The record is a 140-nucleotide RNA sequence from Candidatus Moduliflexus flocculans, which matches "c-di-GMP-I riboswitch aptamer" in Rfam. Lineage of the source: Bacteria > Candidatus Moduliflexota > Candidatus Moduliflexia > Candidatus Moduliflexales > Candidatus Moduliflexus. For this family Rfam cites "Identification of 22 candidate structured RNAs in bacteria using the CMfinder comparative genomics pipeline" (Weinberg et al., Nucleic Acids Res, 2007).

[Rfam]
RNA sequence: GUGAGUUAACGCUAAACCUGCCGUGAGGCAGGGACGGAAAGCCACGGGGCUACCGAAGUGGAGAUGCGAGAUCGGAGAUUUGGCAAGCGACCAAAUCUCCGAUUUCAAAUCUUACAUCCUUAGCUGGCCGGGCUGCCUCA
Numbered sequence: 001g002u003g004a005g006u007u008a009a010c011g012c013u014a015a016a017c018c019u020g021c022c023g024u025g026a027g028g029c030a031g032g033g034a035c036g037g038a039a040a041g042c043c044a045c046g047g048g049g050c051u052a053c054c055g056a057a058g059u060g061g062a063g064a065u066g067c068g069a070g071a072u073c074g075g076a077g078a079u080u081u082g083g084c085a086a087g088c089g090a091c092c093a094a095a096u097c098u099c100c101g102a103u104u105u106c107a108a109a110u111c112u113u114a115c116a117u118c119c120u121u122a123g124c125u126g127g128c129c130g131g132g133c134u135g136c137c138u139c140a
Stems, first nucleotide, its partner, number of pairs: 012037002017032006040134004045130003048125003055119001
Dot-bracket structure: ...........((...((((((....))))))...))..((((.((((((....(...............................................................)...)))..)))))))......

The family's consensus secondary structure is taken from published work.